[Rfam]
RNA sequence: UCGCCUUAAACUAAUGAGUAAGGAAAACAAAGCGGGUGGUGAGAGCUACCCGCCGCGCUAAAAGUUUUGCGCACGAUUUUUUGGAGGGGGUUAUAGGCUGGCCGAGUGUGGACGCUGCUUACUUCGCAGAACCCGCUUGUGCGGGCCUCCCGACCC
Numbered sequence: 001u002c003g004c005c006u007u008a009a010a011c012u013a014a015u016g017a018g019u020a021a022g023g024a025a026a027a028c029a030a031a032g033c034g035g036g037u038g039g040u041g042a043g044a045g046c047u048a049c050c051c052g053c054c055g056c057g058c059u060a061a062a063a064g065u066u067u068u069g070c071g072c073a074c075g076a077u078u079u080u081u082u083g084g085a086g087g088g089g090g091u092u093a094u095a096g097g098c099u100g101g102c103c104g105a106g107u108g109u110g111g112a113c114g115c116u117g118c119u120u121a122c123u124u125c126g127c128a129g130a131a132c133c134c135g136c137u138u139g140u141g142c143g144g145g146c147c148u149c150c151c152g153a154c155c156c
Base pairs, nucleotide, nucleotide: 004023005022006021007020008019032053033052034051035050036049037048038047039046055072056071057070058069088156089155090154091153095148096147097146098145099144101142103139104138106136107135108134110132115129116128117127118126
Annotation: Rfam assigns this 156-nucleotide RNA sequence from Cocos nucifera to the family "U12 minor spliceosomal RNA". It is annotated as a spliceosomal small nuclear RNA. The pairing is the family consensus, mapped onto this sequence. Rfam links the family to the GO terms U12 snRNP, mRNA branch site recognition and pre-mRNA branch point binding. It scores 90 bits against the family's covariance model.